[Rfam]
RNA sequence: AAAAAAAAUGGGCGAAACGCCCAUCUUCCAUUACCGCUGGUCGCUCGUCGGGCAGCGCAAUUAAGCGUUAGAGCAAAGACCCAGCGACUGCAAGAUUUU
Numbered sequence: 001a002a003a004a005a006a007a008a009u010g011g012g013c014g015a016a017a018c019g020c021c022c023a024u025c026u027u028c029c030a031u032u033a034c035c036g037c038u039g040g041u042c043g044c045u046c047g048u049c050g051g052g053c054a055g056c057g058c059a060a061u062u063a064a065g066c067g068u069u070a071g072a073g074c075a076a077a078g079a080c081c082c083a084g085c086g087a088c089u090g091c092a093a094g095a096u097u098u099u
Base pairs, nucleotide, nucleotide: 008024009023010022011021012020013019014018038090039089040088041087042086043085044084050082051081052080
Dot-bracket structure: .......(((((((...))))))).............(((((((.....(((...........................))).))))))).........
Shown here is a 99-nucleotide RNA from Pararobbsia alpina, a member of the family "Burkholderia sRNA Bp1_Cand612_SIPHT". The organism belongs to Pararobbsia, within Bacteria. A reference for the family is Khoo et al. (2012), "Computational discovery and RT-PCR validation of novel Burkholderia conserved and Burkholderia pseudomallei unique sRNAs", BMC Genomics. It is annotated as a small RNA.